Rfam assigns this 151-nucleotide sequence from Trinickia terrae to the family "Burkholderia sRNA Bp1_Cand612_SIPHT". It scores 80 bits against the family's covariance model. Pairs were carried over by alignment from the consensus structure, which was predicted with RNAalifold. Rfam classes the family as a small RNA. On this family, see Khoo et al., BMC Genomics 2012: "Computational discovery and RT-PCR validation of novel Burkholderia conserved and Burkholderia pseudomallei unique sRNAs".
RNA sequence: AAAAAAAAUGGGCUUCACGCCCAUCUUUUUCUAACCGGUGGUCGCACCUGAGCCGCACGUUGAUGCCACCUUAUUGCUGCCAAGUCAGAGACCUACCGCGGUGACCAAGCCAGAUGCCGCACGCCCAGCGACUUCGCGAUUGUAGCAUUUU
Numbered sequence: 001a002a003a004a005a006a007a008a009u010g011g012g013c014u015u016c017a018c019g020c021c022c023a024u025c026u027u028u029u030u031c032u033a034a035c036c037g038g039u040g041g042u043c044g045c046a047c048c049u050g051a052g053c054c055g056c057a058c059g060u061u062g063a064u065g066c067c068a069c070c071u072u073a074u075u076g077c078u079g080c081c082a083a084g085u086c087a088g089a090g091a092c093c094u095a096c097c098g099c100g101g102u103g104a105c106c107a108a109g110c111c112a113g114a115u116g117c118c119g120c121a122c123g124c125c126c127a128g129c130g131a132c133u134u135c136g137c138g139a140u141u142g143u144a145g146c147a148u149u150u151u
Stems, first nucleotide, its partner, number of pairs: 008024006039142007050134003054130003